[Rfam]
c-di-GMP-I riboswitch aptamer: a 96-nucleotide RNA sequence from Paenibacillus ferrarius.
The family's consensus secondary structure is taken from published work.
Taxonomically the source falls in Paenibacillus (Bacteria, Bacillati, Bacilli, Paenibacillaceae).
GEMM was predicted in a large-scale screen for bacterial structured RNA regulatory elements.
A search with the family's covariance model found it, with a score of 75 bits.
Nucleotides: 096
Stems, first nucleotide, its partner, number of pairs: 012037002017032006040090004047086002049082003056076004
Number, partner (000 for none) and nucleotide at each position: 001000g002000u003000a004000c005000g006000a007000u008000a009000a010000a011000g012037g013036c014000a015000a016000a017032a018031c019030c020029a021028u022027u023000g024000a025000a026000a027022a028021g029020u030019g031018g032017u033000g034000a035000c036013g037012c038000a039000a040090a041089g042088c043087u044000a045000u046000a047086g048085g049082g050081a051080c052000u053000a054000a055000a056076u057075u058074g059073g060000c061000a062000u063000u064000a065000u066000c067000c068000a069000a070000u071000g072000c073059u074058c075057a076056a077000a078000a079000u080051g081050u082049c083000a084000g085048c086047c087043a088042g089041c090040u091000a092000c093000c094000g095000g096000u